[Rfam]
RNA: L25-Gammaproteobacteria ribosomal protein leader
Organism: Proteus hauseri
RNA sequence: CUUGUUGCUGGGUCGCCUGUAACAAG
Numbered sequence: 001c002u003u004g005u006u007g008c009u010g011g012g013u014c015g016c017c018u019g020u021a022a023c024a025a026g
Stems, first nucleotide, its partner, number of pairs: 001026008010017002